[Rfam]
RNA sequence: AAUCAGAAAGGGCAAACCUGCUGAAAAGCAGGGACGCAAAGUCACAGGUCUAAGAUCUAUAGUAGAUGAUGACGGCUGGACUGCCUGA
Numbered sequence: 001a002a003u004c005a006g007a008a009a010g011g012g013c014a015a016a017c018c019u020g021c022u023g024a025a026a027a028g029c030a031g032g033g034a035c036g037c038a039a040a041g042u043c044a045c046a047g048g049u050c051u052a053a054g055a056u057c058u059a060u061a062g063u064a065g066a067u068g069a070u071g072a073c074g075g076c077u078g079g080a081c082u083g084c085c086u087g088a
Base pairs, nucleotide, nucleotide: 012037013036017032018031019030020029021028022027040082041081042080043079045078046077047076048073049072050071055067056066057065058064